[Rfam]
RNA: TPP riboswitch aptamer (THI element)
RNA sequence: GGGGAUACCUCGGGGUGCCUUGAGUGGCUGAGAUGCGAAAGCGGACCCGUUGAACCUGACCCGGUUAAGACCGGCGGAGGGAAGGUGCAUGGACGAUCU
Numbered sequence: 001g002g003g004g005a006u007a008c009c010u011c012g013g014g015g016u017g018c019c020u021u022g023a024g025u026g027g028c029u030g031a032g033a034u035g036c037g038a039a040a041g042c043g044g045a046c047c048c049g050u051u052g053a054a055c056c057u058g059a060c061c062c063g064g065u066u067a068a069g070a071c072c073g074g075c076g077g078a079g080g081g082a083a084g085g086u087g088c089a090u091g092g093a094c095g096a097u098c099u
Stems, first nucleotide, its partner, number of pairs: 006087005011049004016043001017028003035042002055080003061074004